A member of the RNA family "MAT2A 3'UTR stem loop E" from Ictidomys tridecemlineatus, 66 nucleotides long. For this family Rfam cites "New families of human regulatory RNA structures identified by comparative analysis of vertebrate genomes" (Parker et al., Genome Res, 2011).
RNA sequence: CCAGCAUUUCCAGGGAGGCAACAGUGUCCAACAGAAAAACCUGGGUAAGACCUACUGGGGGUCUGA
Numbered sequence: 001c002c003a004g005c006a007u008u009u010c011c012a013g014g015g016a017g018g019c020a021a022c023a024g025u026g027u028c029c030a031a032c033a034g035a036a037a038a039a040c041c042u043g044g045g046u047a048a049g050a051c052c053u054a055c056u057g058g059g060g061g062u063c064u065g066a
Stems, first nucleotide, its partner, number of pairs: 002065003006062006014055001016053003019044001021042001024040002026032002
The base pairs follow the family's consensus structure, which is taken from published work.
The family has 28 seed sequences and 337 matches in Rfam 15.1.
The source organism's lineage runs through Eukaryota, Craniata, Vertebrata, Marmotini and Ictidomys.